[Rfam]
RNA sequence: ACCCGUGGACUUCCCUUUGUCAUCCUAUGCCUGAGAAUAUAUGAAGGGGGCUGGGGAGGCAAAGGGACGUUC
Numbered sequence: 001a002c003c004c005g006u007g008g009a010c011u012u013c014c015c016u017u018u019g020u021c022a023u024c025c026u027a028u029g030c031c032u033g034a035g036a037a038u039a040u041a042u043g044a045a046g047g048g049g050g051c052u053g054g055g056g057a058g059g060c061a062a063a064g065g066g067a068c069g070u071u072c
Stems, first nucleotide, its partner, number of pairs: 012067006019060002023056005029051004